RNA: Small nucleolar RNA SNORA49
RNA sequence: UUUCCUUAGCCUUACUCCAGGGGGUUCUUGACUGUAGAGUGCCCUGGCACUGCCUGGAAUAAAUAAAGGAAUAAAGGAAUAAGCAUGGCUCCCUCCACAGGAAGAUUCCACUUUCUUGUGGGGACUACAGACUGGGCUGACAGC
Number, nucleotide and partner (000 for none) at each position: 001u000002u000003u071004c000005c069006u068007u067008a000009g000010c000011c052012u000013u000014a000015c000016u000017c047018c046019a045020g044021g043022g042023g040024g000025u038026u037027c000028u000029u000030g000031a000032c000033u000034g000035u000036a000037g026038a025039g000040u023041g000042c022043c021044c020045u019046g018047g017048c000049a000050c000051u000052g011053c000054c000055u000056g000057g000058a000059a000060u000061a000062a000063a000064u000065a000066a000067a007068g006069g005070a000071a003072u000073a000074a000075a000076g000077g000078a000079a000080u000081a000082a138083g137084c136085a000086u134087g133088g000089c000090u000091c000092c000093c000094u000095c123096c122097a000098c120099a119100g000101g000102a117103a116104g115105a114106u000107u000108c000109c000110a000111c000112u000113u000114u105115c104116u103117u102118g000119u099120g098121g000122g096123g095124a000125c000126u000127a000128c000129a000130g000131a000132c000133u087134g086135g000136g084137c083138u082139g000140a000141c000142a000143g000144c000